[Rfam]
RNA sequence: UUUACGGAUGCGUUCUGGGUUUUACAGAAUGCAUCUGUACCGGCUUUUUAAGGAACCAAUUAAGCCCGUACGGAUUUCCCACGUACGGGCUUUUCCUUUC
Numbered sequence: 001u002u003u004a005c006g007g008a009u010g011c012g013u014u015c016u017g018g019g020u021u022u023u024a025c026a027g028a029a030u031g032c033a034u035c036u037g038u039a040c041c042g043g044c045u046u047u048u049u050a051a052g053g054a055a056c057c058a059a060u061u062a063a064g065c066c067c068g069u070a071c072g073g074a075u076u077u078c079c080c081a082c083g084u085a086c087g088g089g090c091u092u093u094u095c096c097u098u099u100c
Stems, first nucleotide, its partner, number of pairs: 003039009013029005065089008

The family of this 100-nucleotide RNA from Limosilactobacillus panis is "trpB ncRNA motif". Rfam's curators put it in the seed alignment. The literature on the family includes a 2024 paper in Nucleic Acids Res by Narunsky et al., "The discovery of novel noncoding RNAs in 50 bacterial genomes".